[Rfam]
RNA sequence: GACUUGUGUGAAAUCCCUUUUAACAGCUCAGUAUGUCACUUAUGACUGACAAGAUUCAGCUGUGAAGUCAACCAAAGC
Numbered sequence: 001g002a003c004u005u006g007u008g009u010g011a012a013a014u015c016c017c018u019u020u021u022a023a024c025a026g027c028u029c030a031g032u033a034u035g036u037c038a039c040u041u042a043u044g045a046c047u048g049a050c051a052a053g054a055u056u057c058a059g060c061u062g063u064g065a066a067g068u069c070a071a072c073c074a075a076a077g078c
Stems, first nucleotide, its partner, number of pairs: 001069004
RNA: Small nucleolar RNA SNORD19
Organism: Merops nubicus